[Rfam]
RNA sequence: CUCUGAAGGCAGCAGCGCAGAAGUAAGGGUGACAAUACCUUGCUAUGCCACCCUUACUUCUGCGCUGCUGCCUUCAGAG
Numbered sequence: 001c002u003c004u005g006a007a008g009g010c011a012g013c014a015g016c017g018c019a020g021a022a023g024u025a026a027g028g029g030u031g032a033c034a035a036u037a038c039c040u041u042g043c044u045a046u047g048c049c050a051c052c053c054u055u056a057c058u059u060c061u062g063c064g065c066u067g068c069u070g071c072c073u074u075c076a077g078a079g
Base pairs, nucleotide, nucleotide: 001079002078003077005075006074007073011069012068013067014066015065016064017063018062020059022058023057024056025055026054027053028052029051
mir-16 microRNA precursor family: a 79-nucleotide RNA from Chelonia mydas. Clan: mir-15 clan. The family has 14 seed sequences and 4,705 matches in Rfam 15.1. It scores 42 bits against the family's covariance model.